[Rfam]
RNA sequence: CUAUGAGGAUGAUUACCAAUUGAACUCUCUCUUUCUGAGGGAUUAGUGGAGAAGACUUUAAAAUUCUGAGUAGC
Numbered sequence: 001c002u003a004u005g006a007g008g009a010u011g012a013u014u015a016c017c018a019a020u021u022g023a024a025c026u027c028u029c030u031c032u033u034u035c036u037g038a039g040g041g042a043u044u045a046g047u048g049g050a051g052a053a054g055a056c057u058u059u060a061a062a063a064u065u066c067u068g069a070g071u072a073g074c
Stems, first nucleotide, its partner, number of pairs: 001073004